[Rfam]
FMN riboswitch aptamer (RFN element): a 119-nucleotide RNA from Winkia neuii. Rfam links the family to the GO term FMN binding. A reference for the family is Gelfand et al. (1999), "A conserved RNA structure element involved in the regulation of bacterial riboflavin synthesis genes", Trends Genet. The family's consensus secondary structure is taken from published work. The source organism's lineage runs through Bacteria, Bacillati, Actinomycetales, Winkia and Winkia neuii.
RNA sequence: AUACGCAUUCGGGGUCAGUGAAAGUCUGAACCGGCGGUUAUAGUCCGCGACCCGCUAAGGCGGUUGAGCUGGUGAAAUUCCGGCACCGACGGUAAAAGUCCGGAAGGGAGAAUGUUACA
Numbered sequence: 001a002u003a004c005g006c007a008u009u010c011g012g013g014g015u016c017a018g019u020g021a022a023a024g025u026c027u028g029a030a031c032c033g034g035c036g037g038u039u040a041u042a043g044u045c046c047g048c049g050a051c052c053c054g055c056u057a058a059g060g061c062g063g064u065u066g067a068g069c070u071g072g073u074g075a076a077a078u079u080c081c082g083g084c085a086c087c088g089a090c091g092g093u094a095a096a097a098g099u100c101c102g103g104a105a106g107g108g109a110g111a112a113u114g115u116u117a118c119a
Base pairs, nucleotide, nucleotide: 005115006114007113008112009111010110016028017027018026030099031098032088033087034048035047036046037045043086044085052063053062068084069083070082071081072080090102091101092100